[Rfam]
Shown here is a 93-nucleotide sequence from Geodia barretti, a member of the family "Selenocysteine transfer RNA". Pairs were carried over by alignment from the consensus structure, which is taken from published work. Its family is annotated with triplet codon-amino acid adaptor activity in the Gene Ontology. The match comes from Rfam's covariance-model search (74 bits).

RNA sequence: GGAAGCGUAUCGGUGCUGGUGUGCCGCCUGGACUUCAAAUCCAGUGACCGGGGCUAAUAACUUCGGAGGUGGGUUCGACUCCCACACGCUUCC
Numbered sequence: 001g002g003a004a005g006c007g008u009a010u011c012g013g014u015g016c017u018g019g020u021g022u023g024c025c026g027c028c029u030g031g032a033c034u035u036c037a038a039a040u041c042c043a044g045u046g047a048c049c050g051g052g053g054c055u056a057a058u059a060a061c062u063u064c065g066g067a068g069g070u071g072g073g074u075u076c077g078a079c080u081c082c083c084a085c086a087c088g089c090u091u092c093c
Stems, first nucleotide, its partner, number of pairs: 001093008011026006028044005048066004070084004